[Rfam]
RNA sequence: UAUCCUCGAAUGAUGAAGUAUUUUCGGAUGUAAAAACAUUAUUGUCUUGUCCGAGAGCGCAAAACCGUGUGGACAUUUUCCGUUGCCUUCCUUCUGACUCCCAAC
Numbered sequence: 001u002a003u004c005c006u007c008g009a010a011u012g013a014u015g016a017a018g019u020a021u022u023u024u025c026g027g028a029u030g031u032a033a034a035a036a037c038a039u040u041a042u043u044g045u046c047u048u049g050u051c052c053g054a055g056a057g058c059g060c061a062a063a064a065c066c067g068u069g070u071g072g073a074c075a076u077u078u079u080c081c082g083u084u085g086c087c088u089u090c091c092u093u094c095u096g097a098c099u100c101c102c103a104a105c
Base pairs, nucleotide, nucleotide: 003104025082026081027080028079